Shown here is a 42-nucleotide RNA sequence from Bacillus sp. SJS, a member of the family "Ribosomal protein L19 leader".
The family's RNA type in Rfam is cis-regulatory leader.
This family is a putative r-protein leader autoregulatory structure found in B. subtilis and other low-GC Gram-positive bacteria.
On this family, see Zengel and Lindahl, Prog Nucleic Acid Res Mol Biol 1994: "Diverse mechanisms for regulating ribosomal protein synthesis in Escherichia coli".
The source organism's lineage runs through Bacteria, Bacillota, Bacilli, Bacillaceae and Bacillus.
RNA sequence: AAGAUGUUCCGCUGCAAUGCAUAAGAUUGGAAUGAGCAUCUG
Numbered sequence: 001a002a003g004a005u006g007u008u009c010c011g012c013u014g015c016a017a018u019g020c021a022u023a024a025g026a027u028u029g030g031a032a033u034g035a036g037c038a039u040c041u042g
Stems, first nucleotide, its partner, number of pairs: 003040007013032001015029004